RNA sequence: GUAACAAGGGGGUAACGAAUAGUUGGCAAAGGGGUAGGCUAUUACAUAAUAGUUUUGUUAACAAUUAUUCGUACGAGUUACUAAACAAACAUCUUCAAUAUUUAUUACUUACUUUCCUUUCUAUUUAGCCGACUAGCAAAGCUAGUCGGUUUUAUU
Numbered sequence: 001g002u003a004a005c006a007a008g009g010g011g012g013u014a015a016c017g018a019a020u021a022g023u024u025g026g027c028a029a030a031g032g033g034g035u036a037g038g039c040u041a042u043u044a045c046a047u048a049a050u051a052g053u054u055u056u057g058u059u060a061a062c063a064a065u066u067a068u069u070c071g072u073a074c075g076a077g078u079u080a081c082u083a084a085a086c087a088a089a090c091a092u093c094u095u096c097a098a099u100a101u102u103u104a105u106u107a108c109u110u111a112c113u114u115u116c117c118u119u120u121c122u123a124u125u126u127a128g129c130c131g132a133c134u135a136g137c138a139a140a141g142c143u144a145g146u147c148g149g150u151u152u153u154a155u156u
Stems, first nucleotide, its partner, number of pairs: 001081005015072007028120007042060001044058002128150009